RNA sequence: CGUGAUCUACCCUGUAGAUCCGGGCUUUUGUAGUUAGCUUGUGCAUCAGAAGCUCGUCUCUACAGGUAUCUCACGG
Numbered sequence: 001c002g003u004g005a006u007c008u009a010c011c012c013u014g015u016a017g018a019u020c021c022g023g024g025c026u027u028u029u030g031u032a033g034u035u036a037g038c039u040u041g042u043g044c045a046u047c048a049g050a051a052g053c054u055c056g057u058c059u060c061u062a063c064a065g066g067u068a069u070c071u072c073a074c075g076g
Stems, first nucleotide, its partner, number of pairs: 002074004010066002016061003021056010